[Rfam]
RNA sequence: CAUUAAUUUUUAAUCUUGCCAAAGUUUAUAAAAAAAAAGUAUUGAGCCCAAAUAAAACUGGAUGAAUUGCAGGGAAAACUAAUUGUUAGUUUAUCUGCAGCGAAGUUAUUCUCAAUGCCCUUCUAAUCUUAAUUCUAAUUAGAUUAAGCAUAGAUUGUAGAGAAUAAAACGUUCAACGACUACUUGGUGAGCUGCAUUAGCAAUAAUCCGAUAUAAAGUGUCCAGCAAUAAAUUACAUUGUAAUAGUGUAAUUUAUUGAAGAAAUAGUCUAAUCAAUGAUGUAAAUCAUUG
Numbered sequence: 001c002a003u004u005a006a007u008u009u010u011u012a013a014u015c016u017u018g019c020c021a022a023a024g025u026u027u028a029u030a031a032a033a034a035a036a037a038a039g040u041a042u043u044g045a046g047c048c049c050a051a052a053u054a055a056a057a058c059u060g061g062a063u064g065a066a067u068u069g070c071a072g073g074g075a076a077a078a079c080u081a082a083u084u085g086u087u088a089g090u091u092u093a094u095c096u097g098c099a100g101c102g103a104a105g106u107u108a109u110u111c112u113c114a115a116u117g118c119c120c121u122u123c124u125a126a127u128c129u130u131a132a133u134u135c136u137a138a139u140u141a142g143a144u145u146a147a148g149c150a151u152a153g154a155u156u157g158u159a160g161a162g163a164a165u166a167a168a169a170c171g172u173u174c175a176a177c178g179a180c181u182a183c184u185u186g187g188u189g190a191g192c193u194g195c196a197u198u199a200g201c202a203a204u205a206a207u208c209c210g211a212u213a214u215a216a217a218g219u220g221u222c223c224a225g226c227a228a229u230a231a232a233u234u235a236c237a238u239u240g241u242a243a244u245a246g247u248g249u250a251a252u253u254u255a256u257u258g259a260a261g262a263a264a265u266a267g268u269c270u271a272a273u274c275a276a277u278g279a280u281g282u283a284a285a286u287c288a289u290u291g
Stems, first nucleotide, its partner, number of pairs: 005025001007023003013017001029034001058225004063220002068099006078090005100172002106166001113160001176270001178269005228256009276289005
About this RNA:
A member of the RNA family "Group I catalytic intron" from Tilletia controversa, 291 nucleotides long. On this family, see Cech, Annu Rev Biochem 1990: "Self-splicing of group I introns". The family has 12 seed sequences and 5,602 matches in Rfam 15.1.